A member of the RNA family "SAM (S-adenosyl methionine) riboswitch aptamer" from Arthrobacter woluwensis, 109 nucleotides long. Rfam links the family to the GO terms regulation of gene expression and S-adenosylmethionine metabolic process. The family's consensus secondary structure is taken from published work. The match comes from Rfam's covariance-model search (72 bits). SAM-IV is a mRNA element that regulates gene expression via direct sensing of S-adenosylmethionine (SAM or AdoMet).
RNA sequence: CUUCACGAGAGGUGGCGCCAAGCUCCGACUGGCCACCCGCCAACCCCAUGUUCACGGGUGGCUCGGAUGCAGAAGCGGCCCCGUUCUCCUGGCGGGGCAAGAGCACACG
Numbered sequence: 001c002u003u004c005a006c007g008a009g010a011g012g013u014g015g016c017g018c019c020a021a022g023c024u025c026c027g028a029c030u031g032g033c034c035a036c037c038c039g040c041c042a043a044c045c046c047c048a049u050g051u052u053c054a055c056g057g058g059u060g061g062c063u064c065g066g067a068u069g070c071a072g073a074a075g076c077g078g079c080c081c082c083g084u085u086c087u088c089c090u091g092g093c094g095g096g097g098c099a100a101g102a103g104c105a106c107a108c109g
Stems, first nucleotide, its partner, number of pairs: 001075004009038001011037006021030002039062003044058003078098008